[Rfam]
The record is a 53-nucleotide RNA sequence, which matches "Mu-gpT-DE RNA" in Rfam. The sequence is in the family's curated seed alignment. Pairs were carried over by alignment from the consensus structure, which is taken from published work.
RNA sequence: CCCUGACAGUCCUAUUGUGGGACUGACAUUAGCCACGACAGGAGAUCAUAAUG
Numbered sequence: 001c002c003c004u005g006a007c008a009g010u011c012c013u014a015u016u017g018u019g020g021g022a023c024u025g026a027c028a029u030u031a032g033c034c035a036c037g038a039c040a041g042g043a044g045a046u047c048a049u050a051a052u053g
Base pairs, nucleotide, nucleotide: 002042003041004040005039007025008024009023010022011021